[Rfam]
RNA: c-di-AMP riboswitch aptamer (ydaO/yuaA leader)
RNA sequence: AGUGCAACCAUGCCUAAUGCGCCGGACGGCGCGGCGGGGGAACCAACUUUGGGGUGAAUUCAGCCGUUUGCGGCUGAUAGGGCGACCUUCCGCCCGAACCCGUCAGCUAACCCCGGCGGCAUUCAGGAAGGCCUGG
Numbered sequence: 001a002g003u004g005c006a007a008c009c010a011u012g013c014c015u016a017a018u019g020c021g022c023c024g025g026a027c028g029g030c031g032c033g034g035c036g037g038g039g040g041a042a043c044c045a046a047c048u049u050u051g052g053g054g055u056g057a058a059u060u061c062a063g064c065c066g067u068u069u070g071c072g073g074c075u076g077a078u079a080g081g082g083c084g085a086c087c088u089u090c091c092g093c094c095c096g097a098a099c100c101c102g103u104c105a106g107c108u109a110a111c112c113c114c115g116g117c118g119g120c121a122u123u124c125a126g127g128a129a130g131g132c133c134u135g136g
Stems, first nucleotide, its partner, number of pairs: 011121004018033006035115005044051002052101003060077004080095004